[Rfam]
RNA sequence: ACUAAACUAUUUUUGCGAUGUGUUCUUAAUAUGUAAUCUGAAUAUAUUGGGAACAUUUUGCACCUAUAGUUUUGUGUC
Numbered sequence: 001a002c003u004a005a006a007c008u009a010u011u012u013u014u015g016c017g018a019u020g021u022g023u024u025c026u027u028a029a030u031a032u033g034u035a036a037u038c039u040g041a042a043u044a045u046a047u048u049g050g051g052a053a054c055a056u057u058u059u060g061c062a063c064c065u066a067u068a069g070u071u072u073u074g075u076g077u078c
Stems, first nucleotide, its partner, number of pairs: 004072007014062005020056014
RNA: mir-450 microRNA precursor family